[Rfam]
Source information: This 88-nucleotide sequence from Eubucco bourcierii belongs to the Rfam family "Small nucleolar RNA SNORD70". A reference for the family is Huttenhofer et al. (2001), "RNomics: an experimental approach that identifies 201 candidates for novel, small, non-messenger RNAs in mouse", EMBO J. The family has 21 seed sequences and 1,085 matches in Rfam 15.1. snoRNA HBII-234 belongs to the C/D family of snoRNAs. It is the human orthologue of the mouse MBII-234 and is predicted to guide 2'O-ribose methylation of the small 18S rRNA on position A512. It is hosted, together with HBII-95, by the core C/D box snoRNA protein encoding gene NOP5/NOP58. It scores 56 bits against the family's covariance model.

RNA sequence: CAGACAGUUGUCAAUGAUGAAACCUAGUUAAGAUGAAAUUGAUGAUAUAAUUCAGUUCCUUCGUCACUACCACUGAGACAACAGAUGG
Number, nucleotide and partner (000 for none) at each position: 001c088002a000003g086004a000005c084006a000007g082008u081009u080010g079011u078012c077013a000014a000015u000016g000017a000018u000019g000020a000021a000022a000023c000024c000025u000026a000027g000028u000029u000030a000031a000032g000033a000034u000035g000036a000037a000038a000039u000040u000041g000042a000043u000044g000045a000046u000047a000048u000049a000050a000051u000052u000053c000054a000055g000056u000057u000058c000059c000060u000061u000062c000063g000064u000065c000066a000067c000068u000069a000070c000071c000072a000073c000074u000075g000076a000077g012078a011079c010080a009081a008082c007083a000084g005085a000086u003087g000088g001